RNA sequence: GGCAGGCAAAAUCCUAUCACCACCUCCACGCGGUGCCUGCUGGACAACGACCCGAGGGAAGUUGACAAACGGUGAUAGG
Numbered sequence: 001g002g003c004a005g006g007c008a009a010a011a012u013c014c015u016a017u018c019a020c021c022a023c024c025u026c027c028a029c030g031c032g033g034u035g036c037c038u039g040c041u042g043g044a045c046a047a048c049g050a051c052c053c054g055a056g057g058g059a060a061g062u063u064g065a066c067a068a069a070c071g072g073u074g075a076u077a078g079g
Base pairs, nucleotide, nucleotide: 013079014078015077016076017075018074019073020072021071022034023033024032045064046063047062048061051058052057
A member of the RNA family "drz-agam-1 ribozyme" from Hemibagrus wyckioides, 79 nucleotides long.
The family's consensus secondary structure is taken from published work.
The organism belongs to Hemibagrus, within Eukaryota.
Rfam 15.1 lists 10,507 matches to the family in 53 species.